[Rfam]
Bacterial RNase P class B: a 331-nucleotide sequence from Streptococcus equinus.
Its Rfam clan is "RNaseP clan".
Rfam classes the family as a ribozyme.
RNA sequence: GAGGAAAGUCCGGGCUAGCACUGGCUGUGAUGCCGGUAGUGUUUGUGCUAGGUGAAUCAAUAAGCCUAGGGACAUCUUUUUGAUGUUACGGCGGGCAAAAAGGCUAAGUCUUUACGGAUAUGUCUGAAUAGCCCUGAAAGUGCCACAGUGACGUAGUUCUUGGGGAAACCUAAGAAGUGGAACGCGGUAAACCCCUCAAGCUAGCAACCCAAACUUUGGUAGGGGCAUGGGAUAGUUGGAAUCCGAACAAUCUAUCCUGACUGGAAACAGUAGACAGAUGAUUAUCGAAGGAGAUAAGACCUAGUUAUCUCUGGAACAAAACACGGCUUAU
Numbered sequence: 001g002a003g004g005a006a007a008g009u010c011c012g013g014g015c016u017a018g019c020a021c022u023g024g025c026u027g028u029g030a031u032g033c034c035g036g037u038a039g040u041g042u043u044u045g046u047g048c049u050a051g052g053u054g055a056a057u058c059a060a061u062a063a064g065c066c067u068a069g070g071g072a073c074a075u076c077u078u079u080u081u082g083a084u085g086u087u088a089c090g091g092c093g094g095g096c097a098a099a100a101a102g103g104c105u106a107a108g109u110c111u112u113u114a115c116g117g118a119u120a121u122g123u124c125u126g127a128a129u130a131g132c133c134c135u136g137a138a139a140g141u142g143c144c145a146c147a148g149u150g151a152c153g154u155a156g157u158u159c160u161u162g163g164g165g166a167a168a169c170c171u172a173a174g175a176a177g178u179g180g181a182a183c184g185c186g187g188u189a190a191a192c193c194c195c196u197c198a199a200g201c202u203a204g205c206a207a208c209c210c211a212a213a214c215u216u217u218g219g220u221a222g223g224g225g226c227a228u229g230g231g232a233u234a235g236u237u238g239g240a241a242u243c244c245g246a247a248c249a250a251u252c253u254a255u256c257c258u259g260a261c262u263g264g265a266a267a268c269a270g271u272a273g274a275c276a277g278a279u280g281a282u283u284a285u286c287g288a289a290g291g292a293g294a295u296a297a298g299a300c301c302u303a304g305u306u307a308u309c310u311c312u313g314g315a316a317c318a319a320a321a322c323a324c325g326g327c328u329u330a331u
Stems, first nucleotide, its partner, number of pairs: 006329003010326003014322001015204005020037006043199003047195001048069006070089001071087006090194002093134004101125004108119003140192002142188003157176008208224003228259007260271004290312008
Rfam's curators put it in the seed alignment.